[Rfam]
RNA sequence: AUGAGGAAGAUGAUGAAACCAGAAAAUCUUAGGACACCUUCUGACGCAGUGAAAGAUUGCUGUGUAUGAGAAAGAUUUUCAGUUUCUGAUGCUUAU
Numbered sequence: 001a002u003g004a005g006g007a008a009g010a011u012g013a014u015g016a017a018a019c020c021a022g023a024a025a026a027u028c029u030u031a032g033g034a035c036a037c038c039u040u041c042u043g044a045c046g047c048a049g050u051g052a053a054a055g056a057u058u059g060c061u062g063u064g065u066a067u068g069a070g071a072a073a074g075a076u077u078u079u080c081a082g083u084u085u086c087u088g089a090u091g092c093u094u095a096u
Base pairs, nucleotide, nucleotide: 001096002095003094004093005092007090042048043047
Small nucleolar RNA snoR31/Z110/Z27: a 96-nucleotide RNA from Vitis rotundifolia.
This family contains several related snoRNAs including R31, Z27 and Z110.
Gene Ontology terms of the family: RNA processing and nucleolus.